This 88-nucleotide sequence from Aquarana catesbeiana belongs to the Rfam family "mir-204 microRNA precursor family". The family's consensus secondary structure was predicted with RNAalifold. For this family Rfam cites "Conservation of small RNA pathways in platypus" (Murchison et al., Genome Res, 2008). Its family is annotated with miRNA-mediated post-transcriptional gene silencing and RISC complex in the Gene Ontology. A search with the family's covariance model found it, with a score of 96 bits.
[Rfam]
RNA sequence: ACGUGACACAUGGGUUUCCCUUUGUCAUCCUAUGCCUGGGAAUAAAAAUGAGGCAGGGACAGCAAAGGGAUGCUCAGCUGUCAUCUCC
Numbered sequence: 001a002c003g004u005g006a007c008a009c010a011u012g013g014g015u016u017u018c019c020c021u022u023u024g025u026c027a028u029c030c031u032a033u034g035c036c037u038g039g040g041a042a043u044a045a046a047a048a049u050g051a052g053g054c055a056g057g058g059a060c061a062g063c064a065a066a067g068g069g070a071u072g073c074u075c076a077g078c079u080g081u082c083a084u085c086u087c088c
Stems, first nucleotide, its partner, number of pairs: 017070006024063002028059004034054004